Shown here is a 77-nucleotide sequence from Noviherbaspirillum humi, a member of the family "Xanthine riboswitch aptamer (NMT1 RNA)". Lineage of the source: Bacteria > Pseudomonadota > Betaproteobacteria > Burkholderiales > Noviherbaspirillum.
RNA sequence: AGCCUGAGUAUAAGCGGCUAGCAUCCGCCGCCGGUGGUCUCCGAACACCGGCCAGGAUGUGGGGCAUUGCUCUCGCG
Numbered sequence: 001a002g003c004c005u006g007a008g009u010a011u012a013a014g015c016g017g018c019u020a021g022c023a024u025c026c027g028c029c030g031c032c033g034g035u036g037g038u039c040u041c042c043g044a045a046c047a048c049c050g051g052c053c054a055g056g057a058u059g060u061g062g063g064g065c066a067u068u069g070c071u072c073u074c075g076c077g
Stems, first nucleotide, its partner, number of pairs: 006072005015062001018064002021060006
For this family Rfam cites "A bacterial riboswitch class senses xanthine and uric acid to regulate genes associated with purine oxidation" (Yu and Breaker, RNA, 2020).